Y RNA: a 97-nucleotide RNA sequence from Aotus nancymaae. Pairs were carried over by alignment from the consensus structure, which is taken from published work.
RNA sequence: GGCUGGUUUGAUGGUAGUGGGUUUUCAGAACUUAUUAACAUUAGUGUCACUAAAGUUGGUAUACAACCCCCUCACUGCAAAAUUUGACUGGCUUAUA
Numbered sequence: 001g002g003c004u005g006g007u008u009u010g011a012u013g014g015u016a017g018u019g020g021g022u023u024u025u026c027a028g029a030a031c032u033u034a035u036u037a038a039c040a041u042u043a044g045u046g047u048c049a050c051u052a053a054a055g056u057u058g059g060u061a062u063a064c065a066a067c068c069c070c071c072u073c074a075c076u077g078c079a080a081a082a083u084u085u086g087a088c089u090g091g092c093u094u095a096u097a
Stems, first nucleotide, its partner, number of pairs: 001093008010085002015080001016076006033061003037057002